[Rfam]
The family of this 87-nucleotide RNA sequence from Schaedlerella arabinosiphila is "c-di-GMP-I riboswitch aptamer".
RNA sequence: ACAAUGAUUUAGCAAACUAUCGGAAACGAUGGGACGCAAAGCAAGGGGGCUAAGGCGCCGAAGUGCUAAGCCAGCCCAGCCGCCGGA
Numbered sequence: 001a002c003a004a005u006g007a008u009u010u011a012g013c014a015a016a017c018u019a020u021c022g023g024a025a026a027c028g029a030u031g032g033g034a035c036g037c038a039a040a041g042c043a044a045g046g047g048g049g050c051u052a053a054g055g056c057g058c059c060g061a062a063g064u065g066c067u068a069a070g071c072c073a074g075c076c077c078a079g080c081c082g083c084c085g086g087a
Stems, first nucleotide, its partner, number of pairs: 012037002017032006041080002045077003048072003055066004

The organism belongs to Schaedlerella, within Bacteria. A search with the family's covariance model found it, with a score of 71 bits.